Rfam assigns this 99-nucleotide sequence from Oceanobacillus piezotolerans to the family "Glycine riboswitch aptamer". Lineage of the source: Bacteria > Bacillati > Bacilli > Bacillaceae > Oceanobacillus.
RNA sequence: UUGAUUAUUGUGGGAGAGUCUAAGCAAUUGCUUAGCACCGAAGGAGCAAAUACCCAGAGUGGGUGCCAAUCUCUCAGGUUAAAGGACCACAAUAAGACG
Numbered sequence: 001u002u003g004a005u006u007a008u009u010g011u012g013g014g015a016g017a018g019u020c021u022a023a024g025c026a027a028u029u030g031c032u033u034a035g036c037a038c039c040g041a042a043g044g045a046g047c048a049a050a051u052a053c054c055c056a057g058a059g060u061g062g063g064u065g066c067c068a069a070u071c072u073c074u075c076a077g078g079u080u081a082a083a084g085g086a087c088c089a090c091a092a093u094a095a096g097a098c099g
Stems, first nucleotide, its partner, number of pairs: 006094008020035004037079003040075002044073003051065006